[Rfam]
RNA: Archaeal small subunit ribosomal RNA, nucleotides 860 to 1436
Organism: uncultured marine group II euryarchaeote KM3-85-F5
RNA sequence: UGGCGGGGGAGCACUGCAACCUGAGGAUUGUGCGGUUUAAUUGGAUUCAACGCCGGAAAACUCACCAUAGCCGACGGACAAAUGAAGGCCAGCGUAACGAGCUUGCUGGAUUGUUCGAGAGGUAUUGCAUGGCCGUCGUCAGUUCGUACCGCAAGGCGUUCUGUUAAGUCAGAUAACGAACGAGACCCUCAUCCCUAUUUGCCAACCAGAUCCCCGGAUCUGACGCACUAUAGGGAGACCGCUGGCGCUAAGUCAGAGGAAGGCGAGGGCAACGGUAGGUCAGUAUGAUCCGAAUGCUAUGGGCUACACGCGCAAUACAAAGGACGGGACAAUGGGCUGCAACUCCGAGAGGAACGACGCUAUCCCGAAACCCGUUCGUAGUUCGGAUUGAGGGCUGUAACUCGCCCUCAUGAAGCUGGAUUAGGUAGUAAUCGCGUCUCAAUAGGGCGCGGUGAAUAUGCCCCUGCUCCUUGCACACACCGCCCGUCAAACCAUCUUAGUUGGGGGUGGGUGAGGCUACCUUAACCAUGGGGUAUUCGAGCCUGCCUUUGACAAGGAGGGUUAAGUCGUAACAAGG
Numbered sequence: 001u002g003g004c005g006g007g008g009g010a011g012c013a014c015u016g017c018a019a020c021c022u023g024a025g026g027a028u029u030g031u032g033c034g035g036u037u038u039a040a041u042u043g044g045a046u047u048c049a050a051c052g053c054c055g056g057a058a059a060a061c062u063c064a065c066c067a068u069a070g071c072c073g074a075c076g077g078a079c080a081a082a083u084g085a086a087g088g089c090c091a092g093c094g095u096a097a098c099g100a101g102c103u104u105g106c107u108g109g110a111u112u113g114u115u116c117g118a119g120a121g122g123u124a125u126u127g128c129a130u131g132g133c134c135g136u137c138g139u140c141a142g143u144u145c146g147u148a149c150c151g152c153a154a155g156g157c158g159u160u161c162u163g164u165u166a167a168g169u170c171a172g173a174u175a176a177c178g179a180a181c182g183a184g185a186c187c188c189u190c191a192u193c194c195c196u197a198u199u200u201g202c203c204a205a206c207c208a209g210a211u212c213c214c215c216g217g218a219u220c221u222g223a224c225g226c227a228c229u230a231u232a233g234g235g236a237g238a239c240c241g242c243u244g245g246c247g248c249u250a251a252g253u254c255a256g257a258g259g260a261a262g263g264c265g266a267g268g269g270c271a272a273c274g275g276u277a278g279g280u281c282a283g284u285a286u287g288a289u290c291c292g293a294a295u296g297c298u299a300u301g302g303g304c305u306a307c308a309c310g311c312g313c314a315a316u317a318c319a320a321a322g323g324a325c326g327g328g329a330c331a332a333u334g335g336g337c338u339g340c341a342a343c344u345c346c347g348a349g350a351g352g353a354a355c356g357a358c359g360c361u362a363u364c365c366c367g368a369a370a371c372c373c374g375u376u377c378g379u380a381g382u383u384c385g386g387a388u389u390g391a392g393g394g395c396u397g398u399a400a401c402u403c404g405c406c407c408u409c410a411u412g413a414a415g416c417u418g419g420a421u422u423a424g425g426u427a428g429u430a431a432u433c434g435c436g437u438c439u440c441a442a443u444a445g446g447g448c449g450c451g452g453u454g455a456a457u458a459u460g461c462c463c464c465u466g467c468u469c470c471u472u473g474c475a476c477a478c479a480c481c482g483c484c485c486g487u488c489a490a491a492c493c494a495u496c497u498u499a500g501u502u503g504g505g506g507g508u509g510g511g512u513g514a515g516g517c518u519a520c521c522u523u524a525a526c527c528a529u530g531g532g533g534u535a536u537u538c539g540a541g542c543c544u545g546c547c548u549u550u551g552a553c554a555a556g557g558a559g560g561g562u563u564a565a566g567u568c569g570u571a572a573c574a575a576g577g
Stems, first nucleotide, its partner, number of pairs: 001477002003474003007471007016461002020425005025318001027316008035307002041056004065302007075117004080111001087107003091103003121291002124289004130285002132280003135276004142181006149156002160173004187268004192236007202225001207222006239259002242256005322377007334366003339360002343356001344353003384415001389410007431453008480576001482573001485569002488566001490563004495558003500553013515538002518535007